[Rfam]
RNA sequence: CGACCGUUGUGAUGAUAAUGGCUUGUUGUCUUUACCCUGAAACAAAUCAUGUGGGUUUUCAGUCACUACCUCAUCUGAACAGUCG
Numbered sequence: 001c002g003a004c005c006g007u008u009g010u011g012a013u014g015a016u017a018a019u020g021g022c023u024u025g026u027u028g029u030c031u032u033u034a035c036c037c038u039g040a041a042a043c044a045a046a047u048c049a050u051g052u053g054g055g056u057u058u059u060c061a062g063u064c065a066c067u068a069c070c071u072c073a074u075c076u077g078a079a080c081a082g083u084c085g
Base pairs, nucleotide, nucleotide: 002084003083004082006080007079

This 85-nucleotide RNA from Gasterosteus aculeatus belongs to the Rfam family "Small nucleolar RNA SNORD11B".
Its family is annotated with nucleolus and RNA processing in the Gene Ontology.
By type it is a C/D-box small nucleolar RNA.
The family has 37 seed sequences and 733 matches in Rfam 15.1.
The source organism's lineage runs through Eukaryota, Ctenosquamata, Percomorphaceae, Cottioidei and Gasterosteus.
A reference for the family is Yang et al. (2006), "snoSeeker: an advanced computational package for screening of guide and orphan snoRNA genes in the human genome", Nucleic Acids Res.
Its Rfam clan is "SNORD11 clan".